[Rfam]
Nucleotides: 064
Stems, first nucleotide, its partner, number of pairs: 014032002017029003
Number, partner (000 for none) and nucleotide at each position: 001000u002000a003000a004000u005000u006000u007000u008000g009000c010000a011000c012000c013000g014032u015031c016000u017029u018028a019027c020000a021000a022000a023000a024000g025000a026000u027019g028018u029017a030000c031015g032014a033000c034000u035000a036000c037000a038000u039000a040000a041000a042000a043000a044000u045000c046000a047000u048000u049000a050000a051000a052000u053000a054000a055000u056000a057000u058000u059000g060000g061000a062000a063000u064000g